[Rfam]
RNA sequence: GCCUAUAUAGCUCAGCUGGCAGAGCAUCUGACUGUUAAUCAGAGGGUCCUAGGUUCGAUCCCUAGUAUAGGCG
Numbered sequence: 001g002c003c004u005a006u007a008u009a010g011c012u013c014a015g016c017u018g019g020c021a022g023a024g025c026a027u028c029u030g031a032c033u034g035u036u037a038a039u040c041a042g043a044g045g046g047u048c049c050u051a052g053g054u055u056c057g058a059u060c061c062c063u064a065g066u067a068u069a070g071g072c073g
Stems, first nucleotide, its partner, number of pairs: 001072007010025004027043005049065005
This 73-nucleotide RNA sequence from Candidatus Phytoplasma luffae belongs to the Rfam family "tRNA".
From the family's description: Transfer RNA (tRNA) molecules are approximately 80 nucleotides in length.
Rfam links the family to the GO term triplet codon-amino acid adaptor activity.
The family's RNA type in Rfam is transfer RNA.
Taxonomically the source falls in 16SrVIII (Loofah witches'-broom group) (Bacteria, Mycoplasmatota, Acholeplasmataceae, Candidatus Phytoplasma).